Rfam assigns this 120-nucleotide sequence from Asparagus officinalis to the family "mir-63 microRNA precursor family". The organism belongs to Asparagus, within Eukaryota. It scores 55 bits against the family's covariance model. A reference for the family is de Wit et al. (2009), "Repertoire and evolution of miRNA genes in four divergent nematode species", Genome Res.
RNA sequence: AGCAGAUCUACUAAACUUCACGGGAGUUCAACUCCCGUGAAGUUUCAUAGUUCAAAUUUUUUUUUUUGAACUAUGAAACUUCACGGGAGUUGAACUCCCGUGAAGUUUAGUAGAUCUGCU
Numbered sequence: 001a002g003c004a005g006a007u008c009u010a011c012u013a014a015a016c017u018u019c020a021c022g023g024g025a026g027u028u029c030a031a032c033u034c035c036c037g038u039g040a041a042g043u044u045u046c047a048u049a050g051u052u053c054a055a056a057u058u059u060u061u062u063u064u065u066u067u068g069a070a071c072u073a074u075g076a077a078a079c080u081u082c083a084c085g086g087g088a089g090u091u092g093a094a095c096u097c098c099c100g101u102g103a104a105g106u107u108u109a110g111u112a113g114a115u116c117u118g119c120u
Stems, first nucleotide, its partner, number of pairs: 001120005007114008017104022040081004045076012